The record is a 75-nucleotide RNA from Umezawaea tangerina, which matches "ASpks TB sRNA" in Rfam. Rfam classes the family as an antisense RNA. It scores 62 bits against the family's covariance model. The base pairs follow the family's consensus structure, which is taken from published work.
RNA sequence: CUUCACCGAGCCGAGCAGGAGUGGCUUGUCCUCGUCGCGGUUGCGCCCGUAGGUGGCCAGCAGCGCGUGCGCCUC
Numbered sequence: 001c002u003u004c005a006c007c008g009a010g011c012c013g014a015g016c017a018g019g020a021g022u023g024g025c026u027u028g029u030c031c032u033c034g035u036c037g038c039g040g041u042u043g044c045g046c047c048c049g050u051a052g053g054u055g056g057c058c059a060g061c062a063g064c065g066c067g068u069g070c071g072c073c074u075c
Stems, first nucleotide, its partner, number of pairs: 014026003031071001033069001038065002045058001047056003